[Rfam]
RNA sequence: CAACAAUAAAGAUCAGCUGUUCGUAUAUCCUCAAAGAUAAGGUUUGGGGGUUUCUACAGGGAACCGUAAAUUCCUGGCUACGGAUAGGGUGCUUUUUGCA
Numbered sequence: 001c002a003a004c005a006a007u008a009a010a011g012a013u014c015a016g017c018u019g020u021u022c023g024u025a026u027a028u029c030c031u032c033a034a035a036g037a038u039a040a041g042g043u044u045u046g047g048g049g050g051u052u053u054c055u056a057c058a059g060g061g062a063a064c065c066g067u068a069a070a071u072u073c074c075u076g077g078c079u080a081c082g083g084a085u086a087g088g089g090u091g092c093u094u095u096u097u098g099c100a
Base pairs, nucleotide, nucleotide: 018086019085020084021083022082023081024080025079029049030048031047032046033045034044035043059075060074061073062072063071